[Rfam]
RNA: Small nucleolar RNA SNORA44
Organism: Erinaceus europaeus
RNA sequence: AUGCGUGCUUCUAAGGUUUCUGGCUAGUAGUAACUAUGGGAUCUCCAACUGCAUGGGAAAAUGACAUGGAGAUACUUUGACAGAACAGGUCAGCAUCAUACCAGUAGCUGUCAUUCAUUUUUCCUAUAUUU
Numbered sequence: 001a002u003g004c005g006u007g008c009u010u011c012u013a014a015g016g017u018u019u020c021u022g023g024c025u026a027g028u029a030g031u032a033a034c035u036a037u038g039g040g041a042u043c044u045c046c047a048a049c050u051g052c053a054u055g056g057g058a059a060a061a062u063g064a065c066a067u068g069g070a071g072a073u074a075c076u077u078u079g080a081c082a083g084a085a086c087a088g089g090u091c092a093g094c095a096u097c098a099u100a101c102c103a104g105u106a107g108c109u110g111u112c113a114u115u116c117a118u119u120u121u122u123c124c125u126a127u128a129u130u131u
Stems, first nucleotide, its partner, number of pairs: 011039002016035001018033002021030001068124005083111001086104001088102002